[Rfam]
RNA sequence: GGAAGGUGAUCUUUACAUCAGGUCCUCGGUGGUUUAUUGCUCAUCGUUUGUUUAUAAUAAACCAUCGUGGAGCCGAUGAAAAGAGCACCUCC
Numbered sequence: 001g002g003a004a005g006g007u008g009a010u011c012u013u014u015a016c017a018u019c020a021g022g023u024c025c026u027c028g029g030u031g032g033u034u035u036a037u038u039g040c041u042c043a044u045c046g047u048u049u050g051u052u053u054a055u056a057a058u059a060a061a062c063c064a065u066c067g068u069g070g071a072g073c074c075g076a077u078g079a080a081a082a083g084a085g086c087a088c089c090u091c092c
Stems, first nucleotide, its partner, number of pairs: 002092001004090005010084005016078004021073001023071003027067013